terC RNA: a 61-nucleotide RNA sequence from Pleomorphomonas diazotrophica. Taxonomically the source falls in Pleomorphomonas (Bacteria, Pseudomonadota, Hyphomicrobiales, Pleomorphomonadaceae).

RNA sequence: CGUUAGGUCCGGGCCCCUCUGGCAGACGCCGCCGGCGCAUCUGUGAUGUCGGACCUUUGUC
Dot-bracket structure: .....(((((((.........(((((.((.......)).)))))....)))))))......

Pairs were carried over by alignment from the consensus structure, which is taken from published work.